[Rfam]
The record is an 87-nucleotide RNA sequence from Sciurus carolinensis, which matches "Small nucleolar RNA SNORD70" in Rfam.
RNA sequence: UUCAUGGUUGUCAAUGAUGUAUUACUAGUUGCUGAAUCUAAGUGAUCUAGCUCAAAUAUUCGUCACUACCACUGAGACAACUAUGAA
Numbered sequence: 001u002u003c004a005u006g007g008u009u010g011u012c013a014a015u016g017a018u019g020u021a022u023u024a025c026u027a028g029u030u031g032c033u034g035a036a037u038c039u040a041a042g043u044g045a046u047c048u049a050g051c052u053c054a055a056a057u058a059u060u061c062g063u064c065a066c067u068a069c070c071a072c073u074g075a076g077a078c079a080a081c082u083a084u085g086a087a
Stems, first nucleotide, its partner, number of pairs: 001087012
About the family: snoRNA HBII-234 belongs to the C/D family of snoRNAs. It is the human orthologue of the mouse MBII-234 and is predicted to guide 2'O-ribose methylation of the small 18S rRNA on position A512. It is hosted, together with HBII-95, by the core C/D box snoRNA protein encoding gene NOP5/NOP58.
The organism belongs to Sciurus, within Eukaryota.
The literature on the family includes a 2001 paper in EMBO J by Huttenhofer et al., "RNomics: an experimental approach that identifies 201 candidates for novel, small, non-messenger RNAs in mouse".